[Rfam]
RNA sequence: GGCAGGGGCUUGCGCUCAGGCUUUCAGGUGCGGAGGAAGGUACCCUUCCGCCAAUACACAUCCCGCGGAUGUGGAACCUGUUACGGAUUUUGCGCAUUGAGCGAUCCAUACGGCGCAAGCC
Numbered sequence: 001g002g003c004a005g006g007g008g009c010u011u012g013c014g015c016u017c018a019g020g021c022u023u024u025c026a027g028g029u030g031c032g033g034a035g036g037a038a039g040g041u042a043c044c045c046u047u048c049c050g051c052c053a054a055u056a057c058a059c060a061u062c063c064c065g066c067g068g069a070u071g072u073g074g075a076a077c078c079u080g081u082u083a084c085g086g087a088u089u090u091u092g093c094g095c096a097u098u099g100a101g102c103g104a105u106c107c108a109u110a111c112g113g114c115g116c117a118a119g120c121c
Stems, first nucleotide, its partner, number of pairs: 007121010025080002028077002030051007057073007085107003090104004